[Rfam]
RNA: Plant signal recognition particle RNA
Organism: Cucumis sativus
RNA sequence: GCCGAGCUUUGUUCCGUAAGCUUGUAACUCGAGGGAGGGCAUAUAAGAAAAUGGAACAUGAGCCUAUAUUUCUUGGCCGGGUCUAAUAGGGCUUCAUUCUGGACAGUCCUUUCAAGCAAGGAGAUGGGCUGUAUGGUUUGGGCGUAAGCCCAGAAGGCACAGCCUUUAAAGCGGAGGGGAAUGCGUCAGGCUGGCUCACAGAGCAACGACAACCUCCCGCUCUUUGCGGUGAAUGGAAAUCUGACCGGUGCCUGUUGGGCCCACUGGGUCAAGAGAUUGGACUUAAUGGACCAUUUCCCUU
Numbered sequence: 001g002c003c004g005a006g007c008u009u010u011g012u013u014c015c016g017u018a019a020g021c022u023u024g025u026a027a028c029u030c031g032a033g034g035g036a037g038g039g040c041a042u043a044u045a046a047g048a049a050a051a052u053g054g055a056a057c058a059u060g061a062g063c064c065u066a067u068a069u070u071u072c073u074u075g076g077c078c079g080g081g082u083c084u085a086a087u088a089g090g091g092c093u094u095c096a097u098u099c100u101g102g103a104c105a106g107u108c109c110u111u112u113c114a115a116g117c118a119a120g121g122a123g124a125u126g127g128g129c130u131g132u133a134u135g136g137u138u139u140g141g142g143c144g145u146a147a148g149c150c151c152a153g154a155a156g157g158c159a160c161a162g163c164c165u166u167u168a169a170a171g172c173g174g175a176g177g178g179g180a181a182u183g184c185g186u187c188a189g190g191c192u193g194g195c196u197c198a199c200a201g202a203g204c205a206a207c208g209a210c211a212a213c214c215u216c217c218c219g220c221u222c223u224u225u226g227c228g229g230u231g232a233a234u235g236g237a238a239a240u241c242u243g244a245c246c247g248g249u250g251c252c253u254g255u256u257g258g259g260c261c262c263a264c265u266g267g268g269u270c271a272a273g274a275g276a277u278u279g280g281a282c283u284u285a286a287u288g289g290a291c292c293a294u295u296u297c298c299c300u301u
Stems, first nucleotide, its partner, number of pairs: 001040003004023006028037003045300001047298001049296006057288002059285004064280003069276010079262009089253003093250001099248004104243003108236002111233004116227008126165007134157001137154007166171001173217005184208003191201003